[Rfam]
RNA sequence: GAUUUCUCUGCUAGGAAAGGUGUCAUCCCAGUGCUUGACUACUUGGAUCCAGGAAAGUUUGCUUGUUUACAAGUAAACUAGCAUAGAAAGUGGUUACAACGUUUUCGAUGAGAUUAUAUGGAAAACUGGAUUCCAGUGUCAAGCACUGGAAUGACAUCACAGGGGCACUGGGAUGA
Numbered sequence: 001g002a003u004u005u006c007u008c009u010g011c012u013a014g015g016a017a018a019g020g021u022g023u024c025a026u027c028c029c030a031g032u033g034c035u036u037g038a039c040u041a042c043u044u045g046g047a048u049c050c051a052g053g054a055a056a057g058u059u060u061g062c063u064u065g066u067u068u069a070c071a072a073g074u075a076a077a078c079u080a081g082c083a084u085a086g087a088a089a090g091u092g093g094u095u096a097c098a099a100c101g102u103u104u105u106c107g108a109u110g111a112g113a114u115u116a117u118a119u120g121g122a123a124a125a126c127u128g129g130a131u132u133c134c135a136g137u138g139u140c141a142a143g144c145a146c147u148g149g150a151a152u153g154a155c156a157u158c159a160c161a162g163g164g165g166c167a168c169u170g171g172g173a174u175g176a
Base pairs, nucleotide, nucleotide: 011171012170013169014168021156022155023154024153025152026151028149029148030147031146032145033144034143035142036141037140038139039138041137042136043135045133046132047131048130049129050128051127052126
The record is a 176-nucleotide sequence from Nephila pilipes, which matches "Wolbachia sRNA 46" in Rfam. A search with the family's covariance model found it, with a score of 74 bits. The organism belongs to Nephila, within Eukaryota. For this family Rfam cites "Wolbachia small noncoding RNAs and their role in cross-kingdom communications" (Mayoral et al., Proc Natl Acad Sci U S A, 2014). The family has 3 seed sequences and 237 matches in Rfam 15.1.